[Rfam]
RNA sequence: UCUAGAACUCCAGAUAUGGGUAAAAUUCUAAGCAGUGUUUGGGCUAGAUUGCAGGAUAGAUACUGACUUCUCUUUUGUGGCCAAACUUUGAAUUUGAAAAUGGCAGAUUUGGGUCUUUCCCUAUUCAUGAAAGUUGUAGGCCUAUUUCUUAUCUUUCCAAU
Numbered sequence: 001u002c003u004a005g006a007a008c009u010c011c012a013g014a015u016a017u018g019g020g021u022a023a024a025a026u027u028c029u030a031a032g033c034a035g036u037g038u039u040u041g042g043g044c045u046a047g048a049u050u051g052c053a054g055g056a057u058a059g060a061u062a063c064u065g066a067c068u069u070c071u072c073u074u075u076u077g078u079g080g081c082c083a084a085a086c087u088u089u090g091a092a093u094u095u096g097a098a099a100a101u102g103g104c105a106g107a108u109u110u111g112g113g114u115c116u117u118u119c120c121c122u123a124u125u126c127a128u129g130a131a132a133g134u135u136g137u138a139g140g141c142c143u144a145u146u147u148c149u150u151a152u153c154u155u156u157c158c159a160a161u
Base pairs, nucleotide, nucleotide: 003159005157006156007155009151012149013148014147016145017144018143019142020141021139023137025135028133029132035128036127037126046124048122051119053117054116055115056114057113059110060109063106064105065104067103068102073097074096077093078092